Source information:
This 100-nucleotide part of an RNA from candidate division MSBL1 archaeon SCGC-AAA382K21 belongs to the Rfam family "Archaeal large subunit ribosomal RNA". The match comes from Rfam's covariance-model search (2786 bits). Taxonomically the source falls in candidate division MSBL1 (Archaea, Methanobacteriati, Methanobacteriota).
Nucleotides: 100
Stems, first nucleotide, its partner, number of pairs: 001082009015071002024065006033057001038051005085100004
Number, partner (000 for none) and nucleotide at each position: 001082g002081a003080c004079g005078u006077g007076g008075c009074u010000u011000u012000a013000a014000a015071g016070g017000a018000a019000g020000g021000a022000u023000c024065c025064u026063c027062u028061u029060c030000g031000a032000a033057g034000g035000a036000a037000u038051c039050c040049g041048u042047g043000g044000c045000g046000a047042c048041g049040c050039g051038g052000u053000a054000g055000u056000a057033c058000g059000a060029g061028a062027a063026g064025a065024g066000a067000g068000g069000a070016c071015c072000a073000u074009a075008g076007u077006c078005a079004c080003g081002u082001c083000u084000u085100c086099c087098g088097u089000u090000g091000g092000g093000a094000a095000a096000u097088a098087c099086g100085g